[Rfam]
Shown here is a 130-nucleotide RNA from Caenorhabditis angaria, a member of the family "Caenorhabditis snoRNA ceN80". Rfam classes the family as an H/ACA-box small nucleolar RNA. Its family is annotated with nucleolus and RNA processing in the Gene Ontology. For this family Rfam cites "Systematic identification of non-coding RNA 2,2,7-trimethylguanosine cap structures in Caenorhabditis elegans" (Jia et al., BMC Mol Biol, 2007). Rfam 15.1 lists 20 matches to the family in 11 species. Lineage of the source: Eukaryota > Protostomia > Nematoda > Rhabditidae > Caenorhabditis.
RNA sequence: UUGCACUCAUAAGGGACGGAAUUCUCCUAUGAGAUUCUUCGUAUAAUUUUAGGUGCGAAAUAGUAGAGAGGCGCAGUGUUACUCUUCCUUCCUUAUUGGAAAUGGAGAGUGUCAAGCGCUUCCCACAUUA
Numbered sequence: 001u002u003g004c005a006c007u008c009a010u011a012a013g014g015g016a017c018g019g020a021a022u023u024c025u026c027c028u029a030u031g032a033g034a035u036u037c038u039u040c041g042u043a044u045a046a047u048u049u050u051a052g053g054u055g056c057g058a059a060a061u062a063g064u065a066g067a068g069a070g071g072c073g074c075a076g077u078g079u080u081a082c083u084c085u086u087c088c089u090u091c092c093u094u095a096u097u098g099g100a101a102a103u104g105g106a107g108a109g110u111g112u113c114a115a116g117c118g119c120u121u122c123c124c125a126c127a128u129u130a
Stems, first nucleotide, its partner, number of pairs: 003056005009050001011048001016042005024033003066124001068122007077114002080111008090100003